[Rfam]
RNA sequence: AAAAAUAACUAGGGGUGCUGAAAAAGCUGAGAGAGUAAAAUUUACUUAACCCUUUGAACCUGUCUUGGGUAAUUCCAACGUAGGGAAGUGAGCUUGUAAGUAU
Numbered sequence: 001a002a003a004a005a006u007a008a009c010u011a012g013g014g015g016u017g018c019u020g021a022a023a024a025a026g027c028u029g030a031g032a033g034a035g036u037a038a039a040a041u042u043u044a045c046u047u048a049a050c051c052c053u054u055u056g057a058a059c060c061u062g063u064c065u066u067g068g069g070u071a072a073u074u075c076c077a078a079c080g081u082a083g084g085g086a087a088g089u090g091a092g093c094u095u096g097u098a099a100g101u102a103u
Stems, first nucleotide, its partner, number of pairs: 006091001008089003011053004017027003034046005059084004065078004
The record is a 103-nucleotide RNA from Clostridium butyricum, which matches "TPP riboswitch aptamer (THI element)" in Rfam. It scores 75 bits against the family's covariance model. Rfam's curators write: Vitamin B(1) in its active form thiamin pyrophosphate (TPP) is an essential coenzyme that is synthesised by coupling of pyrimidine and thiazole moieties in bacteria.